RNA sequence: CUAACCCAUCUUGAUGUGGUUAUUUCAGUCAUUAAGUGAUUGAUUGUCAGGGCAAUAAUUUAUUGCCCUUUUUAUUU
Numbered sequence: 001c002u003a004a005c006c007c008a009u010c011u012u013g014a015u016g017u018g019g020u021u022a023u024u025u026c027a028g029u030c031a032u033u034a035a036g037u038g039a040u041u042g043a044u045u046g047u048c049a050g051g052g053c054a055a056u057a058a059u060u061u062a063u064u065g066c067c068c069u070u071u072u073u074a075u076u077u
Stems, first nucleotide, its partner, number of pairs: 026046006049069009
RNA: ABC transporter regulator
Organism: Shimwellia blattae